[Rfam]
RNA sequence: GGAAAUUCACUUCUCCGAUCCUUCUCACCUAAGGGGGGGGCAUCAUGAUGUGGGCGGAUAUUGGGGGGCGAUUGAAAUAGUCGUUUCCCUUCGCUCAAGUUAAUGCCCAACACCCUAUGGUGGAAGGACGACAAGGUAUGGCCGGAAACGGCCAUGCCCCCCGUGCUUGGAAAGGAGAAAAGUUAUGGGAAAC
Numbered sequence: 001g002g003a004a005a006u007u008c009a010c011u012u013c014u015c016c017g018a019u020c021c022u023u024c025u026c027a028c029c030u031a032a033g034g035g036g037g038g039g040g041c042a043u044c045a046u047g048a049u050g051u052g053g054g055c056g057g058a059u060a061u062u063g064g065g066g067g068g069c070g071a072u073u074g075a076a077a078u079a080g081u082c083g084u085u086u087c088c089c090u091u092c093g094c095u096c097a098a099g100u101u102a103a104u105g106c107c108c109a110a111c112a113c114c115c116u117a118u119g120g121u122g123g124a125a126g127g128a129c130g131a132c133a134a135g136g137u138a139u140g141g142c143c144g145g146a147a148a149c150g151g152c153c154a155u156g157c158c159c160c161c162c163g164u165g166c167u168u169g170g171a172a173a174g175g176a177g178a179a180a181a182g183u184u185a186u187g188g189g190a191a192a193c
Base pairs, nucleotide, nucleotide: 004186011179012178013177014176015175016174019128020127021126022125023124024123025122027121028120029119033116034115035114036113135158136157137156138155139154140153141152142151143150144149160170161169

Shown here is a 193-nucleotide sequence from Candidatus Zymogenus saltonus, a member of the family "Molybdenum/Tungsten riboswitch aptamer (Moco RNA motif)".
The base pairs follow the family's consensus structure, which is taken from published work.
Lineage of the source: Bacteria > delta/epsilon subdivisions > Candidatus Zymogeniales > Candidatus Zymogenaceae > Candidatus Zymogenus.